[Rfam]
RNA sequence: UGGUAGAUGCACCCUGAUUAUUCACCCCCGCUUCACGGCUGGGGUUUUUUGU
Numbered sequence: 001u002g003g004u005a006g007a008u009g010c011a012c013c014c015u016g017a018u019u020a021u022u023c024a025c026c027c028c029c030g031c032u033u034c035a036c037g038g039c040u041g042g043g044g045u046u047u048u049u050u051g052u
Base pairs, nucleotide, nucleotide: 002013003012004011025044026043027042028041030039031038032037